The family of this 67-nucleotide RNA sequence from Sporolactobacillus inulinus is "RAGATH-18 RNA". It is annotated as a small RNA. The sequence is in the family's curated seed alignment. Taxonomically the source falls in Sporolactobacillus inulinus (Bacteria, Caryophanales, Sporolactobacillaceae, Sporolactobacillus).

RNA sequence: ACUGUGGACUGUUAUUUGACCCUGUAGUAGUGAGUAGUUGGCGAGGCAGAACAGGAUGAAGCAGUAA
Number, nucleotide and partner (000 for none) at each position: 001a065002c064003u063004g062005u061006g000007g000008a000009c054010u053011g052012u051013u050014a000015u000016u000017u000018g000019a000020c000021c000022c049023u048024g047025u000026a000027g000028u000029a000030g042031u041032g000033a000034g000035u000036a000037g000038u000039u000040g000041g031042c030043g000044a000045g000046g000047c024048a023049g022050a013051a012052c011053a010054g009055g000056a000057u000058g000059a000060a000061g005062c004063a003064g002065u001066a000067a000